[Rfam]
RNA sequence: CCUUUUUUUGGGGGGGGCCCCCCCCCAAAAAAAAGGGGGGGGAAAAAAAACCCCCAAAAAAAACCCAAAAAAAAAAAAAAAUUUUAAAAAUUUGGUCCCCCCAAAAAAUUUUAAAAACCCCCCCCAAAGGGGGGUUU
Numbered sequence: 001c002c003u004u005u006u007u008u009u010g011g012g013g014g015g016g017g018c019c020c021c022c023c024c025c026c027a028a029a030a031a032a033a034a035g036g037g038g039g040g041g042g043a044a045a046a047a048a049a050a051c052c053c054c055c056a057a058a059a060a061a062a063a064c065c066c067a068a069a070a071a072a073a074a075a076a077a078a079a080a081a082u083u084u085u086a087a088a089a090a091u092u093u094g095g096u097c098c099c100c101c102c103a104a105a106a107a108a109u110u111u112u113a114a115a116a117a118c119c120c121c122c123c124c125c126a127a128a129g130g131g132g133g134g135u136u137u
Stems, first nucleotide, its partner, number of pairs: 003116004008104006015098005020040006056085002059083002119134006

Shown here is a 137-nucleotide RNA from Coregonus sp. 'balchen', a member of the family "C. elegans sRNA ceN115". The family's consensus secondary structure was predicted with WAR. By type it is a small RNA. For this family Rfam cites "Systematic identification of non-coding RNA 2,2,7-trimethylguanosine cap structures in Caenorhabditis elegans" (Jia et al., BMC Mol Biol, 2007). NCBI's taxonomy places the organism under Eukaryota, Metazoa, Bilateria, Gnathostomata, Coregonus.